[Rfam]
RNA sequence: ACACCAUGAGAAGUUGUGAAUGGGCUGUGAGAUCUUUACGGAUCUUGGGCCUAGGAAAGUCCCCGGGCCGUUUUCCGCAGAGAUGCGGGCCCAGCGAUGGGCAAGUCUUAGGCAUUGGGUGAGCUCGGCUGAGACGCGUGUGGAGCCAUAUGGGCCGCCUUGUCGAGAUAUAUUUGGCCAACUUCUACAGUUAUUCACAAGGUUGUUUCAUCAACCAACAGAACGGGGCUUACUCUCUCAUGGUA
Numbered sequence: 001a002c003a004c005c006a007u008g009a010g011a012a013g014u015u016g017u018g019a020a021u022g023g024g025c026u027g028u029g030a031g032a033u034c035u036u037u038a039c040g041g042a043u044c045u046u047g048g049g050c051c052u053a054g055g056a057a058a059g060u061c062c063c064c065g066g067g068c069c070g071u072u073u074u075c076c077g078c079a080g081a082g083a084u085g086c087g088g089g090c091c092c093a094g095c096g097a098u099g100g101g102c103a104a105g106u107c108u109u110a111g112g113c114a115u116u117g118g119g120u121g122a123g124c125u126c127g128g129c130u131g132a133g134a135c136g137c138g139u140g141u142g143g144a145g146c147c148a149u150a151u152g153g154g155c156c157g158c159c160u161u162g163u164c165g166a167g168a169u170a171u172a173u174u175u176g177g178c179c180a181a182c183u184u185c186u187a188c189a190g191u192u193a194u195u196c197a198c199a200a201g202g203u204u205g206u207u208u209c210a211u212c213a214a215c216c217a218a219c220a221g222a223a224c225g226g227g228g229c230u231u232a233c234u235c236u237c238u239c240a241u242g243g244u245a
Base pairs, nucleotide, nucleotide: 003244004243005242006241007240008239009238010237011236014200015199016198017197018196019195021053022052023051024050025049026048029046030045031044032043033042034041035040057231058230059229061228062227063226064225076087077086078085079084089102090101091100092099093098105171106170108167109166111164112163113162117160118159126157127156128155129154136146137145139143202215203214204213205212

Rfam assigns this 245-nucleotide RNA sequence from Striga hermonthica to the family "RNase MRP".
For this family Rfam cites "Secondary structure of RNase MRP RNA as predicted by phylogenetic comparison" (Schmitt et al., FASEB J, 1993).
Rfam classes the family as a ribozyme.
Its Rfam clan is "RNaseP clan".
The match comes from Rfam's covariance-model search (94 bits).
Rfam 15.1 lists 3,510 matches to the family in 2,315 species.
Its family is annotated with ribonuclease MRP activity, ribonuclease MRP complex and rRNA processing in the Gene Ontology.